The record is a 159-nucleotide sequence from Labrus bergylta, which matches "U1 spliceosomal RNA" in Rfam.
[Rfam]
RNA sequence: AUACUUACCUGGCAGGGAGAUACCAUGAUCAAGAAGGUGGUUCACCCAUGGCGAGGCCUGGCCAUUGCACUCCGGUGGGCUGACCUAUGCGAAUUCCCCAAAUGUGGGAAUCUCGACUGCAUAAUUUGUGGUAGGGGACUGCGUUCGCGCUCUCCCCUG
Numbered sequence: 001a002u003a004c005u006u007a008c009c010u011g012g013c014a015g016g017g018a019g020a021u022a023c024c025a026u027g028a029u030c031a032a033g034a035a036g037g038u039g040g041u042u043c044a045c046c047c048a049u050g051g052c053g054a055g056g057c058c059u060g061g062c063c064a065u066u067g068c069a070c071u072c073c074g075g076u077g078g079g080c081u082g083a084c085c086u087a088u089g090c091g092a093a094u095u096c097c098c099c100a101a102a103u104g105u106g107g108g109a110a111u112c113u114c115g116a117c118u119g120c121a122u123a124a125u126u127u128g129u130g131g132u133a134g135g136g137g138a139c140u141g142c143g144u145u146c147g148c149g150c151u152c153u154c155c156c157c158u159g
Stems, first nucleotide, its partner, number of pairs: 012120004016046002019043002022041005048088004053084001055081003059077001062075002090115003093111003097107002133158006141150003

The family has 100 seed sequences and 40,184 matches in Rfam 15.1. The base pairs follow the family's consensus structure, which is taken from published work. NCBI's taxonomy places the organism under Eukaryota, Neopterygii, Clupeocephala, Eurypterygia, Labrus.